Purine riboswitch aptamer: a 98-nucleotide RNA sequence from Alkalibacterium pelagium. The match comes from Rfam's covariance-model search (69 bits). The family's consensus secondary structure is taken from published work.
Nucleotides: 098
Base pairs, nucleotide, nucleotide: 018084019083020082021081022080023079024078025077029047030046031045032044033043034042056074057073058072059071060070061069
Number, partner (000 for none) and nucleotide at each position: 001000a002000a003000c004000u005000u006000a007000a008000u009000a010000a011000g012000a013000g014000u015000g016000u017000u018084a019083u020082c021081u022080a023079a024078u025077a026000u027000a028000a029047u030046u031045u032044a033043g034042c035000g036000a037000u038000a039000u040000g041000g042034g043033c044032u045031a046030g047029a048000g049000u050000c051000u052000c053000u054000a055000c056074c057073a058072a059071u060070c061069c062000c063000c064000u065000u066000a067000a068000a069061g070060g071059a072058u073057u074056g075000a076000c077025u078024a079023u080022u081021a082020g083019a084018u085000u086000a087000a088000a089000c090000a091000a092000u093000u094000g095000c096000g097000a098000u